[Rfam]
RNA sequence: CAUCGUUCUCAGGGCGGGGCGGAAUUCCCCACCGGCGGUAUGCGGAUCCCGAUCCGCGAGCCCGCGAGCGGCCCCGGCCAAUGGCCCGGGGUGACAGCAGAUCCGGUGCGAGGCCGGAGCCGACGGUCAUAGUCCGGAUGGAAGAGAACGCAC
Numbered sequence: 001c002a003u004c005g006u007u008c009u010c011a012g013g014g015c016g017g018g019g020c021g022g023a024a025u026u027c028c029c030c031a032c033c034g035g036c037g038g039u040a041u042g043c044g045g046a047u048c049c050c051g052a053u054c055c056g057c058g059a060g061c062c063c064g065c066g067a068g069c070g071g072c073c074c075c076g077g078c079c080a081a082u083g084g085c086c087c088g089g090g091g092u093g094a095c096a097g098c099a100g101a102u103c104c105g106g107u108g109c110g111a112g113g114c115c116g117g118a119g120c121c122g123a124c125g126g127u128c129a130u131a132g133u134c135c136g137g138a139u140g141g142a143a144g145a146g147a148a149c150g151c152a153c
Stems, first nucleotide, its partner, number of pairs: 004150007017029003031133002033122002035065004060120002068098002102118005124136003
The family of this 153-nucleotide sequence from Cribrihabitans marinus is "FMN riboswitch aptamer (RFN element)".
The organism belongs to Cribrihabitans, within Bacteria.
The base pairs follow the family's consensus structure, which is taken from published work.